[Rfam]
RNA sequence: ACAAUGAUACUUCCGUCCGGCUGCUGAUGACAGGGGCGGCUGCAGGAGAUCCCUGCAGGGGUUCGAUUCCCAUGA
Numbered sequence: 001a002c003a004a005u006g007a008u009a010c011u012u013c014c015g016u017c018c019g020g021c022u023g024c025u026g027a028u029g030a031c032a033g034g035g036g037c038g039g040c041u042g043c044a045g046g047a048g049a050u051c052c053c054u055g056c057a058g059g060g061g062u063u064c065g066a067u068u069c070c071c072a073u074g075a
Stems, first nucleotide, its partner, number of pairs: 012072001013039006040058003044054003059071003
Background: The family of this 75-nucleotide sequence is "pemK RNA". By type it is a cis-regulatory element.